[Rfam]
The record is a 77-nucleotide sequence from Nicotiana sylvestris, which matches "mir-252 microRNA precursor family" in Rfam. The base pairs follow the family's consensus structure, which was predicted with RNAalifold. The organism belongs to Nicotiana, within Eukaryota. The match comes from Rfam's covariance-model search (54 bits).
RNA sequence: AUUAUGCACUAAGUAUUAGUGCAUUAGCUAAUAUAUAUAUCGAAUAUUAGCUAAUGCACUAAUACUUAGUGCAUAAU
Numbered sequence: 001a002u003u004a005u006g007c008a009c010u011a012a013g014u015a016u017u018a019g020u021g022c023a024u025u026a027g028c029u030a031a032u033a034u035a036u037a038u039a040u041c042g043a044a045u046a047u048u049a050g051c052u053a054a055u056g057c058a059c060u061a062a063u064a065c066u067u068a069g070u071g072c073a074u075a076a077u
Base pairs, nucleotide, nucleotide: 001077002076003075004074005073006072007071010068011067012066013065014064015063016062017061018060019059024054025053026052027051028050029049030048